A member of the RNA family "MIR5269 microRNA precursor family" from Medicago truncatula, 80 nucleotides long. The source organism's lineage runs through Eukaryota, Streptophytina, Spermatophyta, Pentapetalae and Medicago. The family's consensus secondary structure was predicted with RNAalifold.
RNA sequence: UUGAAUUAAAUCAACGUGGGUCAUACACUUUGAAAAUGAAAUUCACAUAAUAUGGUGGGACAUACAUUGAUUUCACUCAA
Numbered sequence: 001u002u003g004a005a006u007u008a009a010a011u012c013a014a015c016g017u018g019g020g021u022c023a024u025a026c027a028c029u030u031u032g033a034a035a036a037u038g039a040a041a042u043u044c045a046c047a048u049a050a051u052a053u054g055g056u057g058g059g060a061c062a063u064a065c066a067u068u069g070a071u072u073u074c075a076c077u078c079a080a
Stems, first nucleotide, its partner, number of pairs: 001080004006075001008073007016065003024057002026054002030050003